[Rfam]
RNA sequence: CGUUAAUGAUUAAGUGUACCGAAGACAGUAGGUGACUCAAGUCGUAAAUCCUACCGAGGACUUUUAUUGAUAAGUAUCAAUAGACCCUCUAUGUCUGCGGUGACAUAGAGUUUUUUUAUUGUAAAA
Number, nucleotide and partner (000 for none) at each position: 001c000002g000003u000004u000005a000006a000007u000008g000009a000010u000011u000012a000013a000014g000015u000016g000017u000018a000019c000020c000021g000022a000023a000024g000025a000026c000027a000028g054029u053030a052031g051032g050033u000034g043035a042036c041037u000038c000039a000040a000041g036042u035043c034044g000045u000046a000047a000048a000049u000050c032051c031052u030053a029054c028055c000056g000057a000058g000059g000060a000061c000062u000063u000064u000065u000066a000067u000068u000069g000070a000071u000072a000073a000074g000075u000076a000077u000078c000079a000080a000081u000082a000083g000084a000085c000086c000087c110088u109089c108090u107091a106092u105093g104094u103095c102096u000097g000098c000099g000100g000101u000102g095103a094104c093105a092106u091107a090108g089109a088110g087111u000112u000113u000114u000115u000116u000117u000118a000119u000120u000121g000122u000123a000124a000125a000126a000
RNA: Ribosomal protein L10 leader
Organism: Tetragenococcus muriaticus